[Rfam]
RNA sequence: GGGCGUGUGGUCUAGUGGUAUGAUACCCGCUUUGGGAUUUUCAAAAUUCUAAAAUAUGCGGGUGGCCCGGGGUUCAAUUCCCCGCUCGCCCC
Numbered sequence: 001g002g003g004c005g006u007g008u009g010g011u012c013u014a015g016u017g018g019u020a021u022g023a024u025a026c027c028c029g030c031u032u033u034g035g036g037a038u039u040u041u042c043a044a045a046a047u048u049c050u051a052a053a054a055u056a057u058g059c060g061g062g063u064g065g066c067c068c069g070g071g072g073u074u075c076a077a078u079u080c081c082c083c084g085c086u087c088g089c090c091c092c
Stems, first nucleotide, its partner, number of pairs: 001091005007085001010024003026062005068084005
RNA: tRNA
Organism: Naumovozyma dairenensis